[Rfam]
RNA sequence: CGAACAUCGUUGAGUAAGAGGAGUAAAUGAAAAUUUGAUUUUUUUCAGAGAGCCGGGGAAGGUGGGAGCCGGUAAAAUCAAUUUCAUCGAAUGGACUUACGAGAGACAGCUUGAAAGGAUCAGUAGGGCUGUACGGAAUUCCACCGUUACAAGGAUAGGAUUUACAAUGAAAUUUGUGAAUCUAAAGAAGUGGGAGUAUUUUUAAGCUCUAACCUGAGGUGGCACCGCGGUGAAUAUUAUCGUCCUCUAU
Number, nucleotide and partner (000 for none) at each position: 001c000002g000003a000004a000005c000006a000007u104008c103009g000010u000011u000012g000013a000014g000015u099016a098017a097018g096019a000020g000021g000022a000023g000024u000025a000026a000027a087028u086029g085030a084031a083032a000033a000034u000035u000036u000037g000038a000039u000040u000041u076042u075043u074044u000045u000046c000047a000048g000049a000050g000051a000052g073053c072054c071055g070056g069057g000058g000059a000060a000061g000062g000063u000064g000065g000066g000067a000068g000069c056070c055071g054072g053073u052074a043075a042076a041077a000078u000079c000080a000081a000082u000083u031084u030085c029086a028087u027088c000089g000090a000091a000092u000093g000094g000095a000096c018097u017098u016099a015100c000101g000102a000103g008104a007105g000106a132107c131108a130109g129110c128111u127112u126113g000114a000115a000116a000117g000118g000119a000120u000121c000122a000123g000124u000125a000126g112127g111128g110129c109130u108131g107132u106133a000134c146135g145136g144137a000138a000139u000140u000141c000142c000143a000144c136145c135146g134147u000148u000149a000150c000151a000152a000153g000154g000155a000156u000157a000158g000159g000160a000161u000162u000163u000164a000165c000166a000167a000168u000169g000170a000171a000172a000173u000174u000175u000176g000177u000178g000179a000180a000181u000182c000183u000184a000185a000186a000187g000188a000189a000190g000191u000192g000193g210194g209195a208196g207197u206198a000199u204200u000201u000202u000203u000204a199205a000206g197207c196208u195209c194210u193211a000212a000213c000214c000215u000216g247217a246218g245219g244220u000221g000222g000223c000224a000225c000226c000227g243228c242229g241230g240231u239232g000233a000234a000235u000236a000237u000238u000239a231240u230241c229242g228243u227244c219245c218246u217247c216248u000249a000250u000

The family of this 250-nucleotide RNA sequence from Robertmurraya siralis is "T-box leader". The literature on the family includes a 1994 paper in J Bacteriol by Grundy et al., "Interaction between the acceptor end of tRNA and the T box stimulates antitermination in the Bacillus subtilis tyrS gene: a new role for the discriminator base". It scores 126 bits against the family's covariance model. Uncharged tRNA acts as the effector for transcription antitermination of genes in the T-box leader family. T-boxes are found upstream of many aminoacyl-tRNA synthetase genes and some amino acid biosynthetic genes usually in Gram-positive bacteria. The source organism's lineage runs through Bacteria, Bacillota, Bacilli, Bacillaceae and Robertmurraya.